Shown here is a 136-nucleotide RNA sequence from Myotis brandtii, a member of the family "U4 spliceosomal RNA". Clan: U4 clan.
[Rfam]
RNA sequence: AGCUUCGCGCAGGGGCAGUAUCGUAGCCAAUGAGGUUUAUCCGAGGCAUGCGUAUUGCUAAUUGAAACCUUUUCCCAAUACCCCGCAUGACUACUUGGUAGUUGGCACUGGCGAUUUUUGACGGUCUCUACGGAGA
Numbered sequence: 001a002g003c004u005u006c007g008c009g010c011a012g013g014g015g016c017a018g019u020a021u022c023g024u025a026g027c028c029a030a031u032g033a034g035g036u037u038u039a040u041c042c043g044a045g046g047c048a049u050g051c052g053u054a055u056u057g058c059u060a061a062u063u064g065a066a067a068c069c070u071u072u073u074c075c076c077a078a079u080a081c082c083c084c085g086c087a088u089g090a091c092u093a094c095u096u097g098g099u100a101g102u103u104g105g106c107a108c109u110g111g112c113g114a115u116u117u118u119u120g121a122c123g124g125u126c127u128c129u130a131c132g133g134a135g136a
Stems, first nucleotide, its partner, number of pairs: 022050003026047003034042002085112002088107002091104001093102003125136004
Dot-bracket structure: .....................(((.(((.....((.....))..))))))..................................((.((.(.(((....))).).))...))............((((....))))

Overview: The family's consensus secondary structure is taken from published work. Taxonomically the source falls in Myotis (Eukaryota, Metazoa, Teleostomi, Eutheria). It is annotated as a spliceosomal small nuclear RNA. For this family Rfam cites "Structures of the human pre-catalytic spliceosome and its precursor spliceosome" (Zhan et al., Cell Res, 2018).